[Rfam]
RNA sequence: GGCUCAAUGAUAUUCUGCUAUAUAUGCAGUAUACGCUAUUCCGACUUAUUACGUGAGCAGAUUUUUAAUUGUAGAUGAGAGCC
Numbered sequence: 001g002g003c004u005c006a007a008u009g010a011u012a013u014u015c016u017g018c019u020a021u022a023u024a025u026g027c028a029g030u031a032u033a034c035g036c037u038a039u040u041c042c043g044a045c046u047u048a049u050u051a052c053g054u055g056a057g058c059a060g061a062u063u064u065u066u067a068a069u070u071g072u073a074g075a076u077g078a079g080a081g082c083c
Base pairs, nucleotide, nucleotide: 001083002082003081004080005079

Rfam assigns this 83-nucleotide sequence from Phaseolus vulgaris to the family "Small nucleolar RNA U54". From the family's description: U54 is a C/D box small nucleolar RNA, which acts as a methylation guide for 18S ribosomal RNA in plants. Rfam classes the family as a C/D-box small nucleolar RNA. It scores 45 bits against the family's covariance model. Rfam 15.1 lists 614 matches to the family in 206 species. Its Rfam clan is "U54 clan". Pairs were carried over by alignment from the consensus structure, which was predicted with PFOLD.